[Rfam]
RNA sequence: AAGUUUUCUGAAACAGUGAUUUCAAAAAUUA
Numbered sequence: 001a002a003g004u005u006u007u008c009u010g011a012a013a014c015a016g017u018g019a020u021u022u023c024a025a026a027a028a029u030u031a
Stems, first nucleotide, its partner, number of pairs: 002030006009024005014018001
RNA: Iron response element II